This 91-nucleotide RNA from Hemibagrus wyckioides belongs to the Rfam family "let-7 microRNA precursor family". The base pairs follow the family's consensus structure, which was predicted with RNAalifold. It scores 62 bits against the family's covariance model. This family represents the microRNAs (miRNA) let-7 and mir-98. let-7 was identified from a study of developmental timing in C. elegans, and was later shown to be part of a much larger class of non-coding RNAs termed miRNAs. The source organism's lineage runs through Eukaryota, Opisthokonta, Teleostomi, Siluroidei and Hemibagrus. Rfam 15.1 lists 8,694 matches to the family in 797 species.
RNA sequence: UUGUGCUGAGGUAGUAAGUUGUGUUGUUGUAGGGAUUUGGUAUGUUAUGCCCUUUUUUGGAGAUAACUAUACAUCUUACUGCCUUUCAUGC
Numbered sequence: 001u002u003g004u005g006c007u008g009a010g011g012u013a014g015u016a017a018g019u020u021g022u023g024u025u026g027u028u029g030u031a032g033g034g035a036u037u038u039g040g041u042a043u044g045u046u047a048u049g050c051c052c053u054u055u056u057u058u059g060g061a062g063a064u065a066a067c068u069a070u071a072c073a074u075c076u077u078a079c080u081g082c083c084u085u086u087c088a089u090g091c
Base pairs, nucleotide, nucleotide: 002090003089004088005087008085009084010083011082012081013080014079015078016077017076018075020073021072022071023070024069026067027066032053033052034051055062056061